[Rfam]
Rfam assigns this 97-nucleotide sequence from Methanomassiliicoccaceae archaeon DOK to the family "RT-17 RNA". Rfam classes the family as a small RNA.
RNA sequence: GGCCCCACCUCUCGGUGAAACAUGAAAAACGAACGUUGACCUAGUAGACAGGAAAGGCCCUGGGCGGACGGUCGACAAUUAGGUAAAGGCGAGAGAA
Numbered sequence: 001g002g003c004c005c006c007a008c009c010u011c012u013c014g015g016u017g018a019a020a021c022a023u024g025a026a027a028a029a030c031g032a033a034c035g036u037u038g039a040c041c042u043a044g045u046a047g048a049c050a051g052g053a054a055a056g057g058c059c060c061u062g063g064g065c066g067g068a069c070g071g072u073c074g075a076c077a078a079u080u081a082g083g084u085a086a087a088g089g090c091g092a093g094a095g096a097a
Base pairs, nucleotide, nucleotide: 006017007016008015009014039072040071041070047065050061051060052059
Background:
NCBI's taxonomy places the organism under Archaea, Methanobacteriati, Thermoplasmata, Methanomassiliicoccales, Methanomassiliicoccaceae. The family's consensus secondary structure is taken from published work.